[Rfam]
RNA sequence: UGGAAGCAUCCAUAAAGCUCAGGAGGGAUAGCGCCAAUGAUGACAAGGAAAGACCUGGGAUUGCUCUUGCAUCUGCUGCGCUAUCUAUCCUGAGUUCCAUGGGCUCUUCCU
Numbered sequence: 001u002g003g004a005a006g007c008a009u010c011c012a013u014a015a016a017g018c019u020c021a022g023g024a025g026g027g028a029u030a031g032c033g034c035c036a037a038u039g040a041u042g043a044c045a046a047g048g049a050a051a052g053a054c055c056u057g058g059g060a061u062u063g064c065u066c067u068u069g070c071a072u073c074u075g076c077u078g079c080g081c082u083a084u085c086u087a088u089c090c091u092g093a094g095u096u097c098c099a100u101g102g103g104c105u106c107u108u109c110c111u
Base pairs, nucleotide, nucleotide: 010102016096017095018094019093020092021091022090023089024088026086027085028084029083030082031081032080033079034078
A member of the RNA family "MIR390 microRNA precursor family" from Musa troglodytarum, 111 nucleotides long.
The source organism's lineage runs through Eukaryota, Viridiplantae, Streptophytina, Tracheophyta and Musa.
Its family is annotated with RISC complex and miRNA-mediated post-transcriptional gene silencing in the Gene Ontology.
A reference for the family is Adai et al. (2005), "Computational prediction of miRNAs in Arabidopsis thaliana", Genome Res.
The match comes from Rfam's covariance-model search (85 bits).